About this RNA:
This 93-nucleotide RNA from Anaerospora hongkongensis belongs to the Rfam family "Selenocysteine transfer RNA". The family is grouped with related families in Rfam's "tRNA clan".
[Rfam]
RNA sequence: GGAAACGGAUGGGGUCUGGUGGCUUCUGCGGUCUUCAAAACCGUUUGCGGGGCAUUAACUUGUCCUGGGUGGGUUCGAUUCCUACACGUUUCC
Numbered sequence: 001g002g003a004a005a006c007g008g009a010u011g012g013g014g015u016c017u018g019g020u021g022g023c024u025u026c027u028g029c030g031g032u033c034u035u036c037a038a039a040a041c042c043g044u045u046u047g048c049g050g051g052g053c054a055u056u057a058a059c060u061u062g063u064c065c066u067g068g069g070u071g072g073g074u075u076c077g078a079u080u081c082c083u084a085c086a087c088g089u090u091u092c093c
Base pairs, nucleotide, nucleotide: 001093002092003091004090005089006088007087008085011026012025013024014023015022016021028044029043030042031041032040048067049066050065051064052063070084071083072082073081